[Rfam]
RNA sequence: UAAGGGCCGGCUCUACCCCCCCAGAGCCGGGCCAGUCGGCGACCCCCGCCCUCCCCCCCGGCGGGGGUCGCCCCUU
Numbered sequence: 001u002a003a004g005g006g007c008c009g010g011c012u013c014u015a016c017c018c019c020c021c022c023a024g025a026g027c028c029g030g031g032c033c034a035g036u037c038g039g040c041g042a043c044c045c046c047c048g049c050c051c052u053c054c055c056c057c058c059c060g061g062c063g064g065g066g067g068u069c070g071c072c073c074c075u076u
Stems, first nucleotide, its partner, number of pairs: 003036001004033002007030007038072013

Rfam assigns this 76-nucleotide RNA sequence from Sphaerimonospora thailandensis to the family "6C RNA". NCBI's taxonomy places the organism under Bacteria, Bacillati, Actinomycetota, Streptosporangiales, Sphaerimonospora. A reference for the family is Weinberg et al. (2007), "Identification of 22 candidate structured RNAs in bacteria using the CMfinder comparative genomics pipeline", Nucleic Acids Res. The family's consensus secondary structure is taken from published work. By type it is a cis-regulatory element. It scores 62 bits against the family's covariance model.